[Rfam]
RNA sequence: GGGACGGGGGCGCGCCUGUGGGACGGCGCGCCGGAUGGUCUCUCCUCAGGAUCCCUUCGCAGGCCCGCUGCGUCCGAUGCCCGACGGACGACGCG
Numbered sequence: 001g002g003g004a005c006g007g008g009g010g011c012g013c014g015c016c017u018g019u020g021g022g023a024c025g026g027c028g029c030g031c032c033g034g035a036u037g038g039u040c041u042c043u044c045c046u047c048a049g050g051a052u053c054c055c056u057u058c059g060c061a062g063g064c065c066c067g068c069u070g071c072g073u074c075c076g077a078u079g080c081c082c083g084a085c086g087g088a089c090g091a092c093g094c095g
Base pairs, nucleotide, nucleotide: 001042002041003040004039005038010031011030012029013028014027015026016025066095067094068093072089073088074087075086076085

Rhodo-rpoB RNA: a 95-nucleotide RNA sequence from Jannaschia seosinensis. Lineage of the source: Bacteria > Pseudomonadota > Alphaproteobacteria > Roseobacteraceae > Jannaschia.